[Rfam]
RNA: Purine riboswitch aptamer
Organism: Alteribacillus persepolensis
RNA sequence: AAACGAAAUCAAUACAUACCUCAUAUAAUCUCAGGAAUAUGGCCUGAAAAGUUUCUACCCGGCAACCGUAAAUUGCUGGACUAUGAGGGAAAGAGAAGUGAGC
Numbered sequence: 001a002a003a004c005g006a007a008a009u010c011a012a013u014a015c016a017u018a019c020c021u022c023a024u025a026u027a028a029u030c031u032c033a034g035g036a037a038u039a040u041g042g043c044c045u046g047a048a049a050a051g052u053u054u055c056u057a058c059c060c061g062g063c064a065a066c067c068g069u070a071a072a073u074u075g076c077u078g079g080a081c082u083a084u085g086a087g088g089g090a091a092a093g094a095g096a097a098g099u100g101a102g103c
Base pairs, nucleotide, nucleotide: 019088020087021086022085023084024083025082029049031047032046033045034044035043059079060078061077062076063075064074065073